[Rfam]
RNA sequence: UGAGUCGGCCGGGUGAUCGCGGCCCCCGAACCAGCCGUCCACGGCGAAGGCGGGUGUCGAGGAAAGUCCGGACUCCACAGAGCACGGUGGUUGCUAACGGCAACCCGGGGUGACCCGCGGGCACGUGCAACAGAAAGUAGACCGCCCGGUUUCGGCCGGGUAAGGGUGAAAGGGUGCGGUAAGAGCGCACCGGCGGGCCAGGUGACUGGUCCGGACAGGUAAACCCCACCGGGAGCAAGGCAUUACGGCCUGUUCACAGAGCAGGCCGGUUCGGAUGAUUGAGGGCUGCUCGCCCGAGUCCGAAGGUAGCUGCUUGAGGCGGUCAGCGAUGGCCGACCCAGAUGGAUGUUCACCGCCCCUCACGGGGUACAGAAUCCGGCUUACAGGCCGGCUCAUUCG
Numbered sequence: 001u002g003a004g005u006c007g008g009c010c011g012g013g014u015g016a017u018c019g020c021g022g023c024c025c026c027c028g029a030a031c032c033a034g035c036c037g038u039c040c041a042c043g044g045c046g047a048a049g050g051c052g053g054g055u056g057u058c059g060a061g062g063a064a065a066g067u068c069c070g071g072a073c074u075c076c077a078c079a080g081a082g083c084a085c086g087g088u089g090g091u092u093g094c095u096a097a098c099g100g101c102a103a104c105c106c107g108g109g110g111u112g113a114c115c116c117g118c119g120g121g122c123a124c125g126u127g128c129a130a131c132a133g134a135a136a137g138u139a140g141a142c143c144g145c146c147c148g149g150u151u152u153c154g155g156c157c158g159g160g161u162a163a164g165g166g167u168g169a170a171a172g173g174g175u176g177c178g179g180u181a182a183g184a185g186c187g188c189a190c191c192g193g194c195g196g197g198c199c200a201g202g203u204g205a206c207u208g209g210u211c212c213g214g215a216c217a218g219g220u221a222a223a224c225c226c227c228a229c230c231g232g233g234a235g236c237a238a239g240g241c242a243u244u245a246c247g248g249c250c251u252g253u254u255c256a257c258a259g260a261g262c263a264g265g266c267c268g269g270u271u272c273g274g275a276u277g278a279u280u281g282a283g284g285g286c287u288g289c290u291c292g293c294c295c296g297a298g299u300c301c302g303a304a305g306g307u308a309g310c311u312g313c314u315u316g317a318g319g320c321g322g323u324c325a326g327c328g329a330u331g332g333c334c335g336a337c338c339c340a341g342a343u344g345g346a347u348g349u350u351c352a353c354c355g356c357c358c359c360u361c362a363c364g365g366g367g368u369a370c371a372g373a374a375u376c377c378g379g380c381u382u383a384c385a386g387g388c389c390g391g392c393u394c395a396u397u398c399g
Base pairs, nucleotide, nucleotide: 001395002394003393004392005391006390007389008388009387010386011384012354013353014352015351016350018348020059021058022057023056025054026053027052028051064382065381066380068379069378070377071376072375073235074234075233076232080291081290082289083288085231086230087229088228089227090104091103092102093101094100105119106117107116108115109114120226121225125224126223127220128219142165143164144161145160146159147158148157149156150155173191174190175189176188177187178186194213195212196211197210198209199208200207201206239311240310241309247301248300250298283295284294285293286292318337320335321334322333323332324331325330

Shown here is a 399-nucleotide sequence from Corynebacterium halotolerans, a member of the family "Bacterial RNase P class A". The organism belongs to Corynebacterium halotolerans, within Bacteria. The family's consensus secondary structure is taken from published work. A search with the family's covariance model found it, with a score of 280 bits.